[Rfam]
RNA: mir-2 microRNA precursor family
Organism: Dermatophagoides farinae
RNA sequence: UAAACCGCCAAAGUGGUUGUGACAAUGUUUAUUGUAAAAAUCAUAUCACAGCCAGCUUUGGUGAGUUUAG
Number, nucleotide and partner (000 for none) at each position: 001u000002a000003a000004a000005c000006c063007g062008c061009c060010a059011a058012a057013g056014u054015g053016g052017u051018u050019g049020u048021g047022a046023c000024a000025a000026u045027g044028u043029u000030u000031a000032u000033u000034g000035u000036a000037a000038a000039a000040a000041u000042c000043a028044u027045a026046u022047c021048a020049c019050a018051g017052c016053c015054a014055g000056c013057u012058u011059u010060g009061g008062u007063g006064a000065g000066u000067u000068u000069a000070g000